[Rfam]
RNA sequence: AGGUGAGGUAGAGGUUGCGGGCUAUUAAGAUUACUUGAGGAGAAACUGGGAGAGUUGAUGACCCUUAAGGAAAGGAAUACCUGCCGAAGCAAUUUGAUUUUCUCGGUUAAAUUGCUGGGGUUGCAUUAAAUAAAUGCAGCACUGUCACAGACAAUAUUCCUUCAUGUUAUCUGUGGAGCACUAUCUUACUA
Dot-bracket structure: .....((((((.....(((((.((((.......(((((((......................)))))))......)))))))))...((((((((((((.....))))))))))))((.((((((((.....)))))))).)).(((((((..................)))))))....)))))).....
A member of the RNA family "Lysine riboswitch aptamer" from Desulforamulus reducens, 191 nucleotides long. Rfam links the family to the GO term lysine biosynthetic process. The organism belongs to Desulforamulus reducens, within Bacteria. Rfam's curators write: Riboswitches are metabolite binding domains within certain messenger RNAs that serve as precision sensors for their corresponding targets.